[Rfam]
RNA: mir-9229 microRNA precursor family
Organism: Cnephaeus nilssonii
RNA sequence: GAGACAACCUUAUGGGGCAUGACUUGCUUCAGUGGGGCUUUGGUGCUCACUGAGUCUGCGCCGUGAGUGUGUCUCU
Numbered sequence: 001g002a003g004a005c006a007a008c009c010u011u012a013u014g015g016g017g018c019a020u021g022a023c024u025u026g027c028u029u030c031a032g033u034g035g036g037g038c039u040u041u042g043g044u045g046c047u048c049a050c051u052g053a054g055u056c057u058g059c060g061c062c063g064u065g066a067g068u069g070u071g072u073c074u075c076u
Base pairs, nucleotide, nucleotide: 001075002074003073004072005071006070009067010066011065012064014062015061017059018058019057021056022055023054029053030052031051032050033049034048035047036046037044038043